[Rfam]
RNA: mir-184 microRNA precursor family
Organism: Dendroctonus ponderosae
RNA sequence: UUUCUUCCAAGCCCUUGUCAUUCUCUCGCCUUGUGUAUUCUAUCGACUGGACGGAGAACUGAUAAGGGCUUGUAGGAAG
Number, nucleotide and partner (000 for none) at each position: 001u000002u000003u000004c000005u000006u000007c000008c000009a000010a000011g000012c068013c067014c066015u065016u064017g063018u062019c061020a060021u058022u057023c056024u055025c054026u053027c000028g000029c050030c049031u000032u000033g000034u000035g000036u000037a000038u000039u000040c000041u000042a000043u000044c000045g000046a000047c000048u000049g030050g029051a000052c000053g026054g025055a024056g023057a022058a021059c000060u020061g019062a018063u017064a016065a015066g014067g013068g012069c000070u000071u000072g000073u000074a000075g000076g000077a000078a000079g000